The record is an 81-nucleotide sequence from Microcaecilia unicolor, which matches "mir-16 microRNA precursor family" in Rfam.
Taxonomically the source falls in Microcaecilia (Eukaryota, Bilateria, Vertebrata, Tetrapoda).
For this family Rfam cites "Frequent deletions and down-regulation of micro- RNA genes miR15 and miR16 at 13q14 in chronic lymphocytic leukemia" (Calin et al., Proc Natl Acad Sci U S A, 2002).

[Rfam]
RNA sequence: GCCACGCUUAAGCAGCACAACAACAUUGGGGUUUAAUAUUUACUUUACUACACCAAUAUUUACGUGCUGCUAAUGCGGAAC
Numbered sequence: 001g002c003c004a005c006g007c008u009u010a011a012g013c014a015g016c017a018c019a020a021c022a023a024c025a026u027u028g029g030g031g032u033u034u035a036a037u038a039u040u041u042a043c044u045u046u047a048c049u050a051c052a053c054c055a056a057u058a059u060u061u062a063c064g065u066g067c068u069g070c071u072a073a074u075g076c077g078g079a080a081c
Stems, first nucleotide, its partner, number of pairs: 001081001005077003010074001011071008020061001022060002025057005